[Rfam]
RNA sequence: CUCUCCGAAAUAGCUUUAGGGCUAGCCUUGAGUGCUUCUUUACGGGGGUAGAGCUACUGAUUUUUCGCGGGCCCUUACCGGGGUACCAACAAAUAUCAAACUCCGAAUACCGUAAAUUUAUGAGCUCAGGAGUCAGUCUAUGUGGGACAAGCCGCAUAGACAAAAGGGAAACAGCCCAGAUCGCCGUCUAAGGCCCCCAAGAUGGGCUAAGUGGAAUUAAGGAUGUGGAGUUGCUUGGACAAUCAGGAUGUUGGCUUAGAGGCAGCCACCAUUUAAAGAGUGCGUAAUAGCUCACUGAUCGAGUGAUUCUGCGCCGAAAAUAAUCGGGACUAAAGCCCAUUGCCGAAGACGCGACCCAGCUUGCUGGGGGUAGGAGAGCGUUCUAUGCAGGAGUGAAGCUUGAUGGAAACAACAGGUGGACCGCAUAGAAGUGAGAAU
Numbered sequence: 001c002u003c004u005c006c007g008a009a010a011u012a013g014c015u016u017u018a019g020g021g022c023u024a025g026c027c028u029u030g031a032g033u034g035c036u037u038c039u040u041u042a043c044g045g046g047g048g049u050a051g052a053g054c055u056a057c058u059g060a061u062u063u064u065u066c067g068c069g070g071g072c073c074c075u076u077a078c079c080g081g082g083g084u085a086c087c088a089a090c091a092a093a094u095a096u097c098a099a100a101c102u103c104c105g106a107a108u109a110c111c112g113u114a115a116a117u118u119u120a121u122g123a124g125c126u127c128a129g130g131a132g133u134c135a136g137u138c139u140a141u142g143u144g145g146g147a148c149a150a151g152c153c154g155c156a157u158a159g160a161c162a163a164a165a166g167g168g169a170a171a172c173a174g175c176c177c178a179g180a181u182c183g184c185c186g187u188c189u190a191a192g193g194c195c196c197c198c199a200a201g202a203u204g205g206g207c208u209a210a211g212u213g214g215a216a217u218u219a220a221g222g223a224u225g226u227g228g229a230g231u232u233g234c235u236u237g238g239a240c241a242a243u244c245a246g247g248a249u250g251u252u253g254g255c256u257u258a259g260a261g262g263c264a265g266c267c268a269c270c271a272u273u274u275a276a277a278g279a280g281u282g283c284g285u286a287a288u289a290g291c292u293c294a295c296u297g298a299u300c301g302a303g304u305g306a307u308u309c310u311g312c313g314c315c316g317a318a319a320a321u322a323a324u325c326g327g328g329a330c331u332a333a334a335g336c337c338c339a340u341u342g343c344c345g346a347a348g349a350c351g352c353g354a355c356c357c358a359g360c361u362u363g364c365u366g367g368g369g370g371u372a373g374g375a376g377a378g379c380g381u382u383c384u385a386u387g388c389a390g391g392a393g394u395g396a397a398g399c400u401u402g403a404u405g406g407a408a409a410c411a412a413c414a415g416g417u418g419g420a421c422c423g424c425a426u427a428g429a430a431g432u433g434a435g436a437a438u
Stems, first nucleotide, its partner, number of pairs: 001378006011024005026132001027130007036123001039116007051104001052102002058098003063093003069087002071084005136161010166177003181354004186350003192344003201341007221315002225312010242299005248272003253267003273277001278293001282291002355368005379433001381430007390422002398417005404411002
Dot-bracket structure: ((((((....(((((....))))).((((((((..(..(((((((.....(((....(((..(((...(((((((....))))).))...)))..)))..)).).....)))))))......)))))))).)...((((((((((......))))))))))....(((......)))...((((.(((...(((......(((((((.............((..((((((((((.......(((((.(((..(((.........)))..)))(...)(...((......)).).)))))...)))))))))).))...................))))))))))...)))))))(((((....)))))....))))))(.(((((((..((......(((((.((....)).)))))...)).)))))))..).....
This 438-nucleotide part of an RNA from Lentisphaera araneosa belongs to the Rfam family "Bacterial large subunit ribosomal RNA".